[Rfam]
RNA: Glycine riboswitch aptamer
Organism: Galactobacter caseinivorans
Nucleotides: 107
Base pairs, nucleotide, nucleotide: 002102004100005099006098007097008096009095016041017040018039019038020037021036043087044086045085046083047082050081052079057074058073
Number, partner (000 for none) and nucleotide at each position: 001000g002102c003000a004100a005099c006098c007097c008096u009095g010000g011000a012000a013000a014000g015000c016041g017040g018039u019038c020037c021036g022000c023000c024000g025000g026000c027000g028000u029000g030000c031000c032000g033000g034000u035000c036021c037020g038019g039018a040017c041016c042000c043087a044086c045085c046083g047082a048000c049000g050081g051000u052079g053000c054000a055000a056000g057074c058073g059000c060000u061000c062000g063000c064000a065000g066000u067000u068000g069000g070000g071000c072000g073058c074057g075000g076000a077000a078000u079052c080000u081050c082047u083046c084000a085045g086044g087043u088000c089000c090000g091000g092000a093000u094000a095009c096008a097007g098006g099005g100004u101000g102002g103000g104000g105000a106000g107000g